The family of this 72-nucleotide RNA sequence from Orthohepacivirus hominis is "Hepatitis C virus stem-loop SL2531 and SL2549AU".
Lineage of the source: Viruses > Riboviria > Amarillovirales > Hepaciviridae > Orthohepacivirus.
The base pairs follow the family's consensus structure, which was predicted with RNAfold.

[Rfam]
RNA sequence: UGUUGGCAGACGCCAGGCUCUGCGCGUGCUUGUGGAUGAUGCUGAUGGUUUCGCAGGUCGAAGCAGCGCUCG
Numbered sequence: 001u002g003u004u005g006g007c008a009g010a011c012g013c014c015a016g017g018c019u020c021u022g023c024g025c026g027u028g029c030u031u032g033u034g035g036a037u038g039a040u041g042c043u044g045a046u047g048g049u050u051u052c053g054c055a056g057g058u059c060g061a062a063g064c065a066g067c068g069c070u071c072g
Stems, first nucleotide, its partner, number of pairs: 006023005024067002027065005034058001037055002